RNA sequence: AUGAACGUACAGGGAGAGACUGCCACCAGCAUCAGGGCAGCGCCGAAGGAGUAAGCCGUUAUGGUGAAUCUCUCAGGCAAAAGGACCUGUACUGGACG
Numbered sequence: 001a002u003g004a005a006c007g008u009a010c011a012g013g014g015a016g017a018g019a020c021u022g023c024c025a026c027c028a029g030c031a032u033c034a035g036g037g038c039a040g041c042g043c044c045g046a047a048g049g050a051g052u053a054a055g056c057c058g059u060u061a062u063g064g065u066g067a068a069u070c071u072c073u074c075a076g077g078c079a080a081a082a083g084g085a086c087c088u089g090u091a092c093u094g095g096a097c098g
Base pairs, nucleotide, nucleotide: 007092008091009090010089011088012087013086020040021039022038023037042078043077044076045074046073049072050071051070055065056064
The family of this 98-nucleotide RNA sequence from Paenibacillus bovis is "Glycine riboswitch aptamer". NCBI's taxonomy places the organism under Bacteria, Bacillati, Bacillota, Paenibacillaceae, Paenibacillus. The pairing is the family consensus, mapped onto this sequence.